The family of this 93-nucleotide RNA sequence from Rhabdonatronobacter sediminivivens is "Glycine riboswitch aptamer". NCBI's taxonomy places the organism under Bacteria, Alphaproteobacteria, Rhodobacterales, Paracoccaceae, Rhabdonatronobacter. The match comes from Rfam's covariance-model search (67 bits).
RNA sequence: CCCAUGUGUUCGGGAGACACUGGCGCAUCGCCGUCAGGGCCGAAGGAGCAACCGCCCCGGUAAACUCUCAGGCAAAAGGACCGAACACGCCGA
Numbered sequence: 001c002c003c004a005u006g007u008g009u010u011c012g013g014g015a016g017a018c019a020c021u022g023g024c025g026c027a028u029c030g031c032c033g034u035c036a037g038g039g040c041c042g043a044a045g046g047a048g049c050a051a052c053c054g055c056c057c058c059g060g061u062a063a064a065c066u067c068u069c070a071g072g073c074a075a076a077a078g079g080a081c082c083g084a085a086c087a088c089g090c091c092g093a
Base pairs, nucleotide, nucleotide: 006088007087008086009085010084011083012082013081020037021036022035023034039073040072041071042069043068046067047066048065052060053059